[Rfam]
RNA sequence: GAAGGUUCCAACUUCCCUCAAGGGCUCCCAAUAUUCCAUGUUAAUACUCCGAUAUCAAAAUCAAGUAUGGGAAUGUUGGGGGCUCUUUUGGGACGUUGAAGCCCU
Numbered sequence: 001g002a003a004g005g006u007u008c009c010a011a012c013u014u015c016c017c018u019c020a021a022g023g024g025c026u027c028c029c030a031a032u033a034u035u036c037c038a039u040g041u042u043a044a045u046a047c048u049c050c051g052a053u054a055u056c057a058a059a060a061u062c063a064a065g066u067a068u069g070g071g072a073a074u075g076u077u078g079g080g081g082g083c084u085c086u087u088u089u090g091g092g093a094c095g096u097u098g099a100a101g102c103c104c105u
Stems, first nucleotide, its partner, number of pairs: 004103003009098004014093004021086016
Dot-bracket structure: ...(((..((((.((((...((((((((((((((((..................................))))))))))))))))...)))).))))..)))..
MIR477 microRNA precursor family: a 105-nucleotide RNA sequence from Prunus persica. It scores 65 bits against the family's covariance model. For this family Rfam cites "Novel and mechanical stress-responsive MicroRNAs in Populus trichocarpa that are absent from Arabidopsis" (Lu et al., Plant Cell, 2005). Its family is annotated with RISC complex and miRNA-mediated post-transcriptional gene silencing in the Gene Ontology. The organism belongs to Prunus, within Eukaryota.